[Rfam]
RNA: mir-263 microRNA precursor family
Organism: Musca domestica
RNA sequence: CGGUGUUAACUCUUGGCACUGGGAGAAUUCACAGUUGUUAUCUGUUAGAUUCUGUGGUUCUUUGGGUGUCAAAUGUUAAUGCGA
Dot-bracket structure: ..((((((((..((((((.(.((.(((.((((((.................)))))))))).).).))))))..))))))))..